Description:
A member of the RNA family "MIR5565 microRNA precursor family" from Miscanthus lutarioriparius, 109 nucleotides long. The source organism's lineage runs through Eukaryota, Streptophytina, Spermatophyta, Panicoideae and Miscanthus. Pairs were carried over by alignment from the consensus structure, which was predicted with RNAalifold. Rfam links the family to the GO terms RISC complex and miRNA-mediated post-transcriptional gene silencing.

[Rfam]
RNA sequence: GCGUAUAAAUCCACCUCAAUCCACGUAGUUUGGAAGGGAUUGAGGUGGAAUUUAGUUUAAGUUCCACCUUAACCCUUUCCAAACUAUGUGGAUUGGGAUGGAUUUAUGU
Dot-bracket structure: ...((((((((((..(((((((((((((((((..((((.((((.(((.................))).)))).))))..)))))))))))))))))..)))))))))).
Numbered sequence: 001g002c003g004u005a006u007a008a009a010u011c012c013a014c015c016u017c018a019a020u021c022c023a024c025g026u027a028g029u030u031u032g033g034a035a036g037g038g039a040u041u042g043a044g045g046u047g048g049a050a051u052u053u054a055g056u057u058u059a060a061g062u063u064c065c066a067c068c069u070u071a072a073c074c075c076u077u078u079c080c081a082a083a084c085u086a087u088g089u090g091g092a093u094u095g096g097g098a099u100g101g102a103u104u105u106a107u108g109u
Stems, first nucleotide, its partner, number of pairs: 004108010016096017035077004040072004045067003